[Rfam]
This 248-nucleotide RNA from Geoglobus ahangari belongs to the Rfam family "Archaeal RNase P". Rfam's curators write: Ribonuclease P (RNase P) is a ubiquitous endoribonuclease, found in archaea, bacteria and eukarya as well as chloroplasts and mitochondria. Its best characterised activity is the generation of mature 5'-ends of tRNAs by cleaving the 5'-leader elements of precursor-tRNAs. Cellular RNase Ps are ribonucleoproteins. RNA from bacterial RNase Ps retains its catalytic activity in the absence of the protein subunit, i.e. it is a ribozyme. Isolated eukaryotic and archaeal RNase P RNA has not been shown to retain its catalytic function, but is still essential for the catalytic activity of the holoenzyme. Although the archaeal and eukaryotic holoenzymes have a much greater protein content than the bacterial ones, the RNA cores from all the three lineages are homologous -- helices corresponding to P1, P2, P3, P4, and P10/11 are common to all cellular RNase P RNAs. Yet, there is considerable sequence variation, particularly among the eukaryotic RNAs. NCBI's taxonomy places the organism under Archaea, Methanobacteriati, Methanobacteriota, Archaeoglobi, Geoglobus.
RNA sequence: GAGCGGCGGAGGGCAGCUUCCCGCUGUGCGGGAGGAAAGUCCCCCCACCGCUGAUGGCGGGACGCCGCAAGGCGUCGUGCCGAGAGGCACGGCAACGGAACAGAAACGUCACUCCUGCAGGGUAAUGCGAGGAAGCCGGAAGGCCGAGAUCACCUGCGGGAGUUGAAACGGCCGUCCCCGCCGGUGCAAGGCAUGUGCCGCUCAGACGGAUGCUGCCUGAAACAGAAGGGGGCUUACUACCGCCACUC
Numbered sequence: 001g002a003g004c005g006g007c008g009g010a011g012g013g014c015a016g017c018u019u020c021c022c023g024c025u026g027u028g029c030g031g032g033a034g035g036a037a038a039g040u041c042c043c044c045c046c047a048c049c050g051c052u053g054a055u056g057g058c059g060g061g062a063c064g065c066c067g068c069a070a071g072g073c074g075u076c077g078u079g080c081c082g083a084g085a086g087g088c089a090c091g092g093c094a095a096c097g098g099a100a101c102a103g104a105a106a107c108g109u110c111a112c113u114c115c116u117g118c119a120g121g122g123u124a125a126u127g128c129g130a131g132g133a134a135g136c137c138g139g140a141a142g143g144c145c146g147a148g149a150u151c152a153c154c155u156g157c158g159g160g161a162g163u164u165g166a167a168a169c170g171g172c173c174g175u176c177c178c179c180g181c182c183g184g185u186g187c188a189a190g191g192c193a194u195g196u197g198c199c200g201c202u203c204a205g206a207c208g209g210a211u212g213c214u215g216c217c218u219g220a221a222a223c224a225g226a227a228g229g230g231g232g233c234u235u236a237c238u239a240c241c242g243c244c245a246c247u248c
Stems, first nucleotide, its partner, number of pairs: 001248003005244005010238002012217006020032005037235003041232005046186004056182005061076005077090005091177002096174003112162010135144002190199003
The family's RNA type in Rfam is ribozyme. Rfam links the family to the GO terms tRNA processing, multimeric ribonuclease P complex and ribonuclease P activity. A reference for the family is Brown (1999), "The Ribonuclease P Database", Nucleic Acids Res.